[Rfam]
RNA: leuA-Halobacteria RNA
RNA sequence: GCCGUCGGAGGAUAGAGGAAGUCGGGGCGACCCGGCUGGAUGUGAAAUCCGAC
Numbered sequence: 001g002c003c004g005u006c007g008g009a010g011g012a013u014a015g016a017g018g019a020a021g022u023c024g025g026g027g028c029g030a031c032c033c034g035g036c037u038g039g040a041u042g043u044g045a046a047a048u049c050c051g052a053c
Base pairs, nucleotide, nucleotide: 020037021036022035023034024033025032026031